[Rfam]
RNA sequence: UGCACUCUGCCUUGUAAGUCGCUCUGGAUAAGAGCGUCUACCAAAUGUUCUUUA
Numbered sequence: 001u002g003c004a005c006u007c008u009g010c011c012u013u014g015u016a017a018g019u020c021g022c023u024c025u026g027g028a029u030a031a032g033a034g035c036g037u038c039u040a041c042c043a044a045a046u047g048u049u050c051u052u053u054a
Stems, first nucleotide, its partner, number of pairs: 013043001014041003020036006
RNA: UnaL2 LINE 3' element